[Rfam]
RNA sequence: CUGCUAUCAUUCGCCCCGAACAUUGGGGAGUAGCCGGCCUUAGUCAACUAAGGGAUCUGCGUCAACAUUCUUGGCCCGCAGGCCAUGGUGCAGAUAGUCGCAAGACUUGGCGAGACCAUCGCUCAAAUGACGACCGCAUGGGCCGGGGUCGCUGUUUGCGCUUUGGUUAUUAUUCCGGCCCCAGAAAGUU
Numbered sequence: 001c002u003g004c005u006a007u008c009a010u011u012c013g014c015c016c017c018g019a020a021c022a023u024u025g026g027g028g029a030g031u032a033g034c035c036g037g038c039c040u041u042a043g044u045c046a047a048c049u050a051a052g053g054g055a056u057c058u059g060c061g062u063c064a065a066c067a068u069u070c071u072u073g074g075c076c077c078g079c080a081g082g083c084c085a086u087g088g089u090g091c092a093g094a095u096a097g098u099c100g101c102a103a104g105a106c107u108u109g110g111c112g113a114g115a116c117c118a119u120c121g122c123u124c125a126a127a128u129g130a131c132g133a134c135c136g137c138a139u140g141g142g143c144c145g146g147g148g149u150c151g152c153u154g155u156u157u158g159c160g161c162u163u164u165g166g167u168u169a170u171u172a173u174u175c176c177g178g179c180c181c182c183a184g185a186a187a188g189u190u
Stems, first nucleotide, its partner, number of pairs: 038053003055095010072085005103190001
Dot-bracket structure: .....................................(((..........))).((((((((((.......(((((....))))))))))))))).......(......................................................................................)